[Rfam]
RNA sequence: GCGGAAGUAGUUCAGUGGUAGAACACCACCUUGCCAAGGUGGGGGUCGCGGGUUCGAAUCCCGUCUUCCGCU
Number, nucleotide and partner (000 for none) at each position: 001g071002c070003g069004g068005a067006a066007g065008u000009a000010g024011u023012u022013c021014a000015g000016u000017g000018g000019u000020a000021g013022a012023a011024c010025a000026c042027c041028a040029c039030c038031u000032u000033g000034c000035c000036a000037a000038g030039g029040u028041g027042g026043g000044g000045g000046u000047c000048g064049c063050g062051g061052g060053u000054u000055c000056g000057a000058a000059u000060c052061c051062c050063g049064u048065c007066u006067u005068c004069c003070g002071c001072u000